Description: This 128-nucleotide sequence from Ligilactobacillus pobuzihii belongs to the Rfam family "FMN riboswitch aptamer (RFN element)".

RNA sequence: GUUUAUCUUCAGGGCAGGGUGUAAUUCCCGACCGGCGGUAAUAGUCCGCGACCCUUAUCCAUAGCGGUAAGGUUGACUUGGUGUAAAUCCGAGACCGACAGUUAAAGUCUGGAUGAAAGAAGAUAGAG
Dot-bracket structure: ..((((((((......(((.......))).[[((((((.....[[))))...((................))....(((((.......)))))]])).(((.....]]))).......))))))))..
The match comes from Rfam's covariance-model search (124 bits). The source organism's lineage runs through Bacteria, Bacillati, Bacilli, Lactobacillaceae and Ligilactobacillus. Rfam links the family to the GO term FMN binding. Rfam describes the family as follows. The RFN element is a highly conserved domain that is found frequently in the 5'-untranslated regions of prokaryotic mRNAs that encode for flavin mononucleotide (FMN) biosynthesis and transport proteins. Pairs were carried over by alignment from the consensus structure, which is taken from published work.